[Rfam]
RNA sequence: CCGCACUAGCCGGGGUGGUAGCGGUGCCCUGUACUCACAAUCCGCUAUAGUGAGGGUGAUGCUCGCUUUCGACGCAGGGCUUGAUGGUCUGCCCUUUGAAAGCGGUGUUGAAGUUUGGGUCUUACGCAACAUGAGCCUGUGAAUCGUGUCAGGGUCGGAAGGCAGCAGCACUAAGCAGUCUACUUGUGUGUGUAGUAAGGGUGCCUGAAUGGAGCCGUGGAAGAAGGUAACGCGUGGGGCGCUGUGGCAACAGCGGGUGUGCGG
Numbered sequence: 001c002c003g004c005a006c007u008a009g010c011c012g013g014g015g016u017g018g019u020a021g022c023g024g025u026g027c028c029c030u031g032u033a034c035u036c037a038c039a040a041u042c043c044g045c046u047a048u049a050g051u052g053a054g055g056g057u058g059a060u061g062c063u064c065g066c067u068u069u070c071g072a073c074g075c076a077g078g079g080c081u082u083g084a085u086g087g088u089c090u091g092c093c094c095u096u097u098g099a100a101a102g103c104g105g106u107g108u109u110g111a112a113g114u115u116u117g118g119g120u121c122u123u124a125c126g127c128a129a130c131a132u133g134a135g136c137c138u139g140u141g142a143a144u145c146g147u148g149u150c151a152g153g154g155u156c157g158g159a160a161g162g163c164a165g166c167a168g169c170a171c172u173a174a175g176c177a178g179u180c181u182a183c184u185u186g187u188g189u190g191u192g193u194a195g196u197a198a199g200g201g202u203g204c205c206u207g208a209a210u211g212g213a214g215c216c217g218u219g220g221a222a223g224a225a226g227g228u229a230a231c232g233c234g235u236g237g238g239g240c241g242c243u244g245u246g247g248c249a250a251c252a253g254c255g256g257g258u259g260u261g262c263g264g
Stems, first nucleotide, its partner, number of pairs: 001264006009057003012030006019023001034054005062257006071248001073246003077242001079240004084235003090229002094226004104216003113210008121199005127190002130188005135180001137178004146171004154163003